[Rfam]
RNA sequence: AAUAUUUAUGUUUAUAUUUAUAUUUAUGUUUAUAUUUAUGUUUAUGUUUAUGUCCAUAUGUUUGCAAUCUAUUCACUUACUAUUAAACCAUAUUAUUAAGGAAUUAGUAAACUAAACGAUUGCUAUAAUAAUUAUGACAAUUUUGUUUAAUUAUUAAAAUUAUUAUUCUUUUUUUUGAUUAAUUUUA
Numbered sequence: 001a002a003u004a005u006u007u008a009u010g011u012u013u014a015u016a017u018u019u020a021u022a023u024u025u026a027u028g029u030u031u032a033u034a035u036u037u038a039u040g041u042u043u044a045u046g047u048u049u050a051u052g053u054c055c056a057u058a059u060g061u062u063u064g065c066a067a068u069c070u071a072u073u074c075a076c077u078u079a080c081u082a083u084u085a086a087a088c089c090a091u092a093u094u095a096u097u098a099a100g101g102a103a104u105u106a107g108u109a110a111a112c113u114a115a116a117c118g119a120u121u122g123c124u125a126u127a128a129u130a131a132u133u134a135u136g137a138c139a140a141u142u143u144u145g146u147u148u149a150a151u152u153a154u155u156a157a158a159a160u161u162a163u164u165a166u167u168c169u170u171u172u173u174u175u176u177g178a179u180u181a182a183u184u185u186u187a
Base pairs, nucleotide, nucleotide: 009139010138011137012136013134014133025058026057027056028055031052032051033050034049037046038045039044059130060129061128062127064123065122066121067120077110078109079108080107081106082105088101089100091098092097147182148181149180150179151178152177153176156173157172158171159170

Background:
Rfam assigns this 187-nucleotide RNA from Plasmodium falciparum to the family "Plasmodium RNA of unkown function RU6-F3".